Shown here is a 201-nucleotide sequence from Novosphingobium chloroacetimidivorans, a member of the family "Manganese Mn2+ riboswitch aptamer (yybP-ykoY)".
[Rfam]
RNA sequence: AUUCCCGUCAUUGGGGAGUAGCCGACCGCUGGCGGCAGCGGGCCGCACGUCAACAUACUUGGCCGAGAGGUCAUGGCGUGCGAAGGGUGGCGCAAAGGUCGAGGGUUCGACCGGCGCCGUUCGGGCGAGACCAAUGGCAUGGUGCCUUCUGCCGGCCGGGCGGGAGGCGCGAUGCCAUUGUAUUUGUCUCACGCCCGGCCU
Dot-bracket structure: .........................(((..........)))..(((((((((.......(((((....))))))))))))))......(((..........................................................................................................))).
About the family: This RNA was originally discovered in E. coli during a large scale screen and was named SraF. The family was later found to exist upstream of related families of protein genes in many bacteria, including the the yybP and ykoK genes in B. subtilis. The specific functions of these proteins are unknown, but this structured RNA element may be involved in their genetic regulation as a riboswitch. The source organism's lineage runs through Bacteria, Pseudomonadota, Alphaproteobacteria, Sphingomonadaceae and Novosphingobium. Rfam links the family to the GO term manganese ion binding. The pairing is the family consensus, mapped onto this sequence. For this family Rfam cites "Novel small RNA-encoding genes in the intergenic regions of Escherichia coli" (Argaman et al., Curr Biol, 2001). It scores 64 bits against the family's covariance model.